[Rfam]
RNA sequence: AUGCACCUGCAGGGGGCGCAGCAUGACCACGAACAGGGUUUUGCAGGUAACCGGUUCAUGUAUCGCCCGGUAUAGCAAAAUUGCUAUUUUAAAGCACUUCU
Numbered sequence: 001a002u003g004c005a006c007c008u009g010c011a012g013g014g015g016g017c018g019c020a021g022c023a024u025g026a027c028c029a030c031g032a033a034c035a036g037g038g039u040u041u042u043g044c045a046g047g048u049a050a051c052c053g054g055u056u057c058a059u060g061u062a063u064c065g066c067c068c069g070g071u072a073u074a075g076c077a078a079a080a081u082u083g084c085u086a087u088u089u090u091a092a093a094g095c096a097c098u099u100c101u
Stems, first nucleotide, its partner, number of pairs: 005048007014068002017065002021061006028054001037052004072087006
RNA: RT-5 RNA